[Rfam]
This 78-nucleotide RNA sequence from Photorhabdus laumondii belongs to the Rfam family "tpke11".
In Yersinia located in ICR upstream dnaJ (chaperone)gene. Has temperature responsive RNA structure.
Rfam's curators put it in the seed alignment.
By type it is a small RNA.
The base pairs follow the family's consensus structure, which was predicted with WAR.
Gene Ontology term of the family: response to temperature stimulus.
On this family, see Rivas et al., Curr Biol 2001: "Computational identification of noncoding RNAs in E. coli by comparative genomics".
RNA sequence: AACUGUUGCUGAUUAACCGGCACGGGCGUUGAGGGAACUCUGCGCCCGUGCGCGCAUGUUAAGGGUAAAAUAAGAGAU
Number, nucleotide and partner (000 for none) at each position: 001a000002a000003c019004u000005g017006u000007u000008g000009c000010u000011g000012a000013u000014u000015a000016a000017c005018c000019g003020g051021c050022a049023c048024g047025g046026g045027c044028g043029u000030u000031g040032a039033g038034g000035g000036a000037a000038c033039u032040c031041u000042g000043c028044g027045c026046c025047c024048g023049u022050g021051c020052g000053c000054g000055c000056a000057u000058g000059u000060u000061a000062a000063g000064g000065g000066u000067a000068a000069a000070a000071u000072a000073a000074g000075a000076g000077a000078u000